[Rfam]
RNA sequence: GAAACACCCCUAUGGAGCAGGACUUGCUUCUGUGGGGCUUUGGUGCUCACUGAGGCUGCCCCUCGAGUGUGUUGCU
Dot-bracket structure: (.(((((.(.(..((.(((.(.(.....((.(((((((....)).))))).))).)))).))..).).))))).).
This 76-nucleotide sequence from Myotis brandtii belongs to the Rfam family "mir-9229 microRNA precursor family". It scores 74 bits against the family's covariance model. Rfam links the family to the GO terms RISC complex and miRNA-mediated post-transcriptional gene silencing. NCBI's taxonomy places the organism under Eukaryota, Teleostomi, Dipnotetrapodomorpha, Boreoeutheria, Myotis.